[Rfam]
RNA sequence: AUAUGAACUUUGUACCACGCACAUUACUUGGAUGGGACCCGAAAAGCAAUAUAAGAA
Numbered sequence: 001a002u003a004u005g006a007a008c009u010u011u012g013u014a015c016c017a018c019g020c021a022c023a024u025u026a027c028u029u030g031g032a033u034g035g036g037a038c039c040c041g042a043a044a045a046g047c048a049a050u051a052u053a054a055g056a057a
Stems, first nucleotide, its partner, number of pairs: 020036001022034004